[Rfam]
Nucleotides: 065
Base pairs, nucleotide, nucleotide: 001063002062003061004060005059006058007057008056009055010054011053012052014050015049018048019047020046021045023043024042
Number, partner (000 for none) and nucleotide at each position: 001063g002062u003061g004060a005059g006058u007057a008056g009055a010054a011053c012052a013000a014050u015049u016000u017000c018048a019047u020046a021045u022000u023043g024042a025000a026000a027000a028000a029000a030000g031000u032000a033000a034000a035000a036000u037000u038000g039000u040000c041000c042024u043023c044000u045021a046020u047019a048018u049015a050014a051000c052012u053011g054010u055009u056008c057007u058006a059005u060004u061003c062002a063001c064000a065000g